Shown here is a 104-nucleotide RNA sequence, a member of the family "Methylobacterium-1 RNA".
RNA sequence: AAAGACAGAAAUCGGUGCUUAAGAAUUAUCUGUCAGGAUUCAGGUGAAAAAUACCUGUGGUGGGAGAGAUGCUAUCCGACAUGCACUCUCUUGCUCCCGUAGUU
Numbered sequence: 001a002a003a004g005a006c007a008g009a010a011a012u013c014g015g016u017g018c019u020u021a022a023g024a025a026u027u028a029u030c031u032g033u034c035a036g037g038a039u040u041c042a043g044g045u046g047a048a049a050a051a052u053a054c055c056u057g058u059g060g061u062g063g064g065a066g067a068g069a070u071g072c073u074a075u076c077c078g079a080c081a082u083g084c085a086c087u088c089u090c091u092u093g094c095u096c097c098c099g100u101a102g103u104u
Stems, first nucleotide, its partner, number of pairs: 004034006011026002041057004059095010070085003